A member of the RNA family "Small nucleolar RNA SNORA55" from Certhia brachydactyla, 130 nucleotides long. Gene Ontology terms of the family: nucleolus and RNA processing. Pairs were carried over by alignment from the consensus structure, which was predicted with PFOLD. About the family: ACA55 is a member of the H/ACA class of snoRNA that guide the sites of modification of uridines to pseudouridines. By type it is an H/ACA-box small nucleolar RNA. It scores 104 bits against the family's covariance model.
RNA sequence: GCACCUGCCUCUUUCCUGUGCCUUGCUGUGCAGUGCAGGUCUAGGGGCACUUGGUGCCACAGCACAGCAGUGGAAAUCCAGAUGAGUUCUUCUCCUCUGGGAGACUCAUCUCUACACCUCUGCAACACCA
Numbered sequence: 001g002c003a004c005c006u007g008c009c010u011c012u013u014u015c016c017u018g019u020g021c022c023u024u025g026c027u028g029u030g031c032a033g034u035g036c037a038g039g040u041c042u043a044g045g046g047g048c049a050c051u052u053g054g055u056g057c058c059a060c061a062g063c064a065c066a067g068c069a070g071u072g073g074a075a076a077u078c079c080a081g082a083u084g085a086g087u088u089c090u091u092c093u094c095c096u097c098u099g100g101g102a103g104a105c106u107c108a109u110c111u112c113u114a115c116a117c118c119u120c121u122g123c124a125a126c127a128c129c130a
Base pairs, nucleotide, nucleotide: 001057002056003055004054005053013047014046015045016044017043018042021039022038067123068122069121070120072118080111081110082109083108084107085106086105087104093102094101095100